[Rfam]
Nucleotides: 164
Base pairs, nucleotide, nucleotide: 012124013123014122015121017048018047019046020045024044025043026042027041028040050091052089056085058083060081062079063078064077094119095118096117097115098114099113101111102110140163141162142161143160144159146157147156149154
Number, partner (000 for none) and nucleotide at each position: 001000u002000a003000u004000c005000u006000u007000a008000c009000c010000u011000g012124g013123c014122a015121g016000g017048g018047g019046u020045g021000a022000u023000a024044a025043c026042c027041a028040u029000g030000a031000u032000c033000a034000a035000c036000c037000a038000a039000g040028g041027u042026g043025g044024u045020u046019g047018c048017c049000g050091g051000c052089g053000a054000c055000g056085g057000c058083u059000u060081g061000u062079u063078c064077c065000a066000u067000u068000g069000g070000c071000a072000c073000a074000u075000c076000c077064g078063g079062a080000c081060u082000u083058g084000c085056u086000g087000c088000a089052c090000u091050c092000g093000g094119u095118g096117a097115a098114u099113u100000c101111g102110a103000c104000a105000a106000a107000c108000g109000u110102u111101c112000g113099a114098a115097u116000c117096u118095c119094a120000a121015c122014u123013g124012c125000a126000c127000a128000a129000u130000u131000u132000c133000u134000g135000g136000u137000a138000g139000u140163g141162g142161g143160g144159g145000a146157c147156u148000g149154g150000u151000u152000c153000g154149c155000a156147g157146g158000u159144c160143u161142c162141c163140c164000c